[Rfam]
RNA sequence: AGGUUAUUUCAAAGAGGGCUCAUGAGGCUAUGAAACCAAGAACUCUUAAUGCUAUGACCAAAGAUUGAAGUUCUCUAUAGAAUGCCAUAGCACUCAAUAAUGUUAUGUUUUCUUGAGGCAUAUAAGA
Numbered sequence: 001a002g003g004u005u006a007u008u009u010c011a012a013a014g015a016g017g018g019c020u021c022a023u024g025a026g027g028c029u030a031u032g033a034a035a036c037c038a039a040g041a042a043c044u045c046u047u048a049a050u051g052c053u054a055u056g057a058c059c060a061a062a063g064a065u066u067g068a069a070g071u072u073c074u075c076u077a078u079a080g081a082a083u084g085c086c087a088u089a090g091c092a093c094u095c096a097a098u099a100a101u102g103u104u105a106u107g108u109u110u111u112c113u114u115g116a117g118g119c120a121u122a123u124a125a126g127a
Stems, first nucleotide, its partner, number of pairs: 002059006014047005020041002023039001026037002072122001074120001076118001079114002082111001087106006094099001
Dot-bracket structure: .((((((......(((((.((.(..((........)).))).)))))......))))))............(.(.(..((.(....((((((.(....).))))))....).))...).).).....

A member of the RNA family "Small nucleolar RNA SNORA25", 127 nucleotides long. Rfam classes the family as an H/ACA-box small nucleolar RNA. The family has 30 seed sequences and 1,129 matches in Rfam 15.1. Rfam's curators put it in the seed alignment.